Source information: Rfam assigns this 153-nucleotide RNA from Paenibacillus zeisoli to the family "FMN riboswitch aptamer (RFN element)". It scores 108 bits against the family's covariance model.

RNA sequence: UUAAUCCUUCGGGGCAGGGUGAAAUUCCCUACCGGCGGUGAUGGUGCACUCUUGUACCUCAGUCCGUGACCCGGCGCAGCAUAGAAUUGCUUCGCUGGCUGACCUGGUGUGAUUCCGGGACCGACAGUAUAGUCUGGAUGGGAGAAGGAAGAC
Numbered sequence: 001u002u003a004a005u006c007c008u009u010c011g012g013g014g015c016a017g018g019g020u021g022a023a024a025u026u027c028c029c030u031a032c033c034g035g036c037g038g039u040g041a042u043g044g045u046g047c048a049c050u051c052u053u054g055u056a057c058c059u060c061a062g063u064c065c066g067u068g069a070c071c072c073g074g075c076g077c078a079g080c081a082u083a084g085a086a087u088u089g090c091u092u093c094g095c096u097g098g099c100u101g102a103c104c105u106g107g108u109g110u111g112a113u114u115c116c117g118g119g120a121c122c123g124a125c126a127g128u129a130u131a132g133u134c135u136g137g138a139u140g141g142g143a144g145a146a147g148g149a150a151g152a153c
Base pairs, nucleotide, nucleotide: 005149006148007147008146009145010144017029018028019027031133032132033123034122035067036066037065038064062121063120071098072097073096074095075094076093103119104118105117106116107115125136126135127134